[Rfam]
RNA sequence: ACAACUUUUCGCGUCGGUCUACCGAGCAAUAUCACCCGCUCCAUGGAAGACCUUGCCUCCGUCGU
Numbered sequence: 001a002c003a004a005c006u007u008u009u010c011g012c013g014u015c016g017g018u019c020u021a022c023c024g025a026g027c028a029a030u031a032u033c034a035c036c037c038g039c040u041c042c043a044u045g046g047a048a049g050a051c052c053u054u055g056c057c058u059c060c061g062u063c064g065u
Stems, first nucleotide, its partner, number of pairs: 004062002011056001013051003018047004024041004
A member of the RNA family "mir-2774 microRNA precursor family" from Bombyx mori, 65 nucleotides long.
For this family Rfam cites "MicroRNAs of Bombyx mori identified by Solexa sequencing" (Liu et al., BMC Genomics, 2010).
Taxonomically the source falls in Bombyx (Eukaryota, Opisthokonta, Panarthropoda, Neolepidoptera).
Rfam links the family to the GO terms RISC complex and miRNA-mediated post-transcriptional gene silencing.